[Rfam]
Microsporidia small subunit ribosomal RNA: a 444-nucleotide part of an RNA from Bryonosema plumatellae. The literature on the family includes a 2001 paper in Science by Yusupov et al., "Crystal structure of the ribosome at 5.5 A resolution".
RNA sequence: CACCAGGUUGAUUCUGCCUGACGUAUGCGCUUGUCUUGAAGAUUUAGCCAUGCAAGCUCGUGACCGUAAGUGAACAGCAGACAGCUCAGUAAUACAGUUAUGAUUUACUCGUAAGCUAUGGAUAACCAUGGAAAACUAUGGCUAACACAUUAUACGACUAAGUUUCUGACCUAUUAGCUAGAUGGUAAGGUAAGGGCUUACCAUGGCGAUGAUGGGUAACGGGGAAUUAACGUUCGAUUCCGGAGAGGGAGCCUGAGAAAUAGCUCCCACGUCUAAGGAUGGCAGCAGGCGCGAAACUUACCCAAUUCCUUAUGGAGAGGUAGUGAAGAGACAUUUUUUUAUUAAUUGAAAGGCAUUGUAAAGAGCAGCCUGUAAACUGGAGGGCAAGCCUGGUGCCAGCAGCCGCGGUAAUUCCAGUUCCAGUAGCGCAUAUAAUAAUUGUUG
Numbered sequence: 001c002a003c004c005a006g007g008u009u010g011a012u013u014c015u016g017c018c019u020g021a022c023g024u025a026u027g028c029g030c031u032u033g034u035c036u037u038g039a040a041g042a043u044u045u046a047g048c049c050a051u052g053c054a055a056g057c058u059c060g061u062g063a064c065c066g067u068a069a070g071u072g073a074a075c076a077g078c079a080g081a082c083a084g085c086u087c088a089g090u091a092a093u094a095c096a097g098u099u100a101u102g103a104u105u106u107a108c109u110c111g112u113a114a115g116c117u118a119u120g121g122a123u124a125a126c127c128a129u130g131g132a133a134a135a136c137u138a139u140g141g142c143u144a145a146c147a148c149a150u151u152a153u154a155c156g157a158c159u160a161a162g163u164u165u166c167u168g169a170c171c172u173a174u175u176a177g178c179u180a181g182a183u184g185g186u187a188a189g190g191u192a193a194g195g196g197c198u199u200a201c202c203a204u205g206g207c208g209a210u211g212a213u214g215g216g217u218a219a220c221g222g223g224g225a226a227u228u229a230a231c232g233u234u235c236g237a238u239u240c241c242g243g244a245g246a247g248g249g250a251g252c253c254u255g256a257g258a259a260a261u262a263g264c265u266c267c268c269a270c271g272u273c274u275a276a277g278g279a280u281g282g283c284a285g286c287a288g289g290c291g292c293g294a295a296a297c298u299u300a301c302c303c304a305a306u307u308c309c310u311u312a313u314g315g316a317g318a319g320g321u322a323g324u325g326a327a328g329a330g331a332c333a334u335u336u337u338u339u340u341a342u343u344a345a346u347u348g349a350a351a352g353g354c355a356u357u358g359u360a361a362a363g364a365g366c367a368g369c370c371u372g373u374a375a376a377c378u379g380g381a382g383g384g385c386a387a388g389c390c391u392g393g394u395g396c397c398a399g400c401a402g403c404c405g406c407g408g409u410a411a412u413u414c415c416a417g418u419u420c421c422a423g424u425a426g427c428g429c430a431u432a433u434a435a436u437a438a439u440u441g442u443u444g
Stems, first nucleotide, its partner, number of pairs: 004020005023433009033332005040324001041292001047290003051287003056078002060075002065070001085245003095168003100163002104161002109157005115151001118150003126141006170216003177207003182204008220242004224235004247268006270281004298322001300321003306317004351371004377423006390417004399406002
The family's consensus secondary structure is taken from published work.